[Rfam]
RNA sequence: AUAUUGAAACGGCAAACCUCUCGAAAGGUAGGGACGCAAAGCCAGGAACCUUAAUCAGUCUUAAAAAACUGAAAUGGUUGUCCGGCUGCCACA
Number, nucleotide and partner (000 for none) at each position: 001a000002u000003a000004u000005u000006g000007a000008a000009a000010c000011g000012g037013c036014a000015a000016a000017c032018c031019u030020c000021u028022c027023g000024a000025a000026a000027g022028g021029u000030a019031g018032g017033g000034a000035c000036g013037c012038a000039a000040a087041g086042c085043c084044a000045g083046g082047a081048a078049c077050c076051u000052u000053a000054a000055u072056c071057a070058g069059u000060c000061u000062u000063a000064a000065a000066a000067a000068a000069c058070u057071g056072a055073a000074a000075u000076g050077g049078u048079u000080g000081u047082c046083c045084g043085g042086c041087u040088g000089c000090c000091a000092c000093a000
Rfam assigns this 93-nucleotide RNA from Sinanaerobacter chloroacetimidivorans to the family "c-di-GMP-I riboswitch aptamer". NCBI's taxonomy places the organism under Bacteria, Bacillati, Bacillota, Clostridia, Sinanaerobacter.